Shown here is a 92-nucleotide RNA sequence from Streptomyces sp. DI166, a member of the family "sodF sRNA". The source organism's lineage runs through Bacteria, Actinomycetota, Actinomycetes, Streptomycetaceae and Streptomyces. Rfam classes the family as a small RNA. A search with the family's covariance model found it, with a score of 94 bits. The literature on the family includes a 2014 paper in Nucleic Acids Res by Kim et al., "Inverse regulation of Fe- and Ni-containing SOD genes by a Fur family regulator Nur through small RNA processed from 3'UTR of the sodF mRNA".
RNA sequence: GUGUCCUGCCUCGUGAUCGUCUUCUCACCUUUCACGCGGGCAGGCAGAAGAAACGGAAGCCCCCGCGAGGACGUGACUCGCGGGGGCUUCCG
Numbered sequence: 001g002u003g004u005c006c007u008g009c010c011u012c013g014u015g016a017u018c019g020u021c022u023u024c025u026c027a028c029c030u031u032u033c034a035c036g037c038g039g040g041c042a043g044g045c046a047g048a049a050g051a052a053a054c055g056g057a058a059g060c061c062c063c064c065g066c067g068a069g070g071a072c073g074u075g076a077c078u079c080g081c082g083g084g085g086g087c088u089u090c091c092g
Base pairs, nucleotide, nucleotide: 002046003045005044006043007042008041009040010039011038013035014034015033016032019029054092055091056090057089058088059087060086061085062084063083064082065081066080067079068078069077